The family of this 59-nucleotide RNA sequence from Phaseolus vulgaris is "Plastid-psbN 5UTR RNA".
The literature on the family includes a 2023 paper in Plant Commun by Richter et al., "Retrograde signaling in plants: A critical review focusing on the GUN pathway and beyond".
Plastid psbN is a non-coding RNA (ncRNA) recognised in plastids. It was reported as a conserved 11 stem-loop in the prime untranslated region (5UTR) of psbN genes. It has been reported that the motif is retained in a subset of mature transcripts in barley, which can suggests a possible role in transcript alternative 5 prime processing.
The source organism's lineage runs through Eukaryota, Magnoliopsida, eudicotyledons, Gunneridae and Phaseolus.
It scores 50 bits against the family's covariance model.
It is annotated as a cis-regulatory element.
The base pairs follow the family's consensus structure, which was predicted with LocARNA.
RNA sequence: UGCAACACUCAUUAAAGGAGUACUUCUUCAUCCCAGAUACUUUAUCAUAUUUUGUGUUU
Numbered sequence: 001u002g003c004a005a006c007a008c009u010c011a012u013u014a015a016a017g018g019a020g021u022a023c024u025u026c027u028u029c030a031u032c033c034c035a036g037a038u039a040c041u042u043u044a045u046c047a048u049a050u051u052u053u054g055u056g057u058u059u
Base pairs, nucleotide, nucleotide: 017043018042019041020040021039022038025037026036027035